This 139-nucleotide RNA from Raphanus sativus belongs to the Rfam family "MIR168 microRNA precursor family". The organism belongs to Raphanus, within Eukaryota.
[Rfam]
RNA sequence: GUUUGAUCGGGCUCGGAUCCGCUUGAUGCAGGUCGGGACUGAUUGGCUGACACAACCACAUAGGUGCUUUUGCCUUAUUGGUUUGUAAGCAGGAAUUGGCUCCCGCCUUGCAUCAACUGAAUCGGAGCCUCCAAUGGUG
Numbered sequence: 001g002u003u004u005g006a007u008c009g010g011g012c013u014c015g016g017a018u019c020c021g022c023u024u025g026a027u028g029c030a031g032g033u034c035g036g037g038a039c040u041g042a043u044u045g046g047c048u049g050a051c052a053c054a055a056c057c058a059c060a061u062a063g064g065u066g067c068u069u070u071u072g073c074c075u076u077a078u079u080g081g082u083u084u085g086u087a088a089g090c091a092g093g094a095a096u097u098g099g100c101u102c103c104c105g106c107c108u109u110g111c112a113u114c115a116a117c118u119g120a121a122u123c124g125g126a127g128c129c130u131c132c133a134a135u136g137g138u139g
Stems, first nucleotide, its partner, number of pairs: 013126002017122002020119001023116010034105005039099006

Notes
A search with the family's covariance model found it, with a score of 84 bits.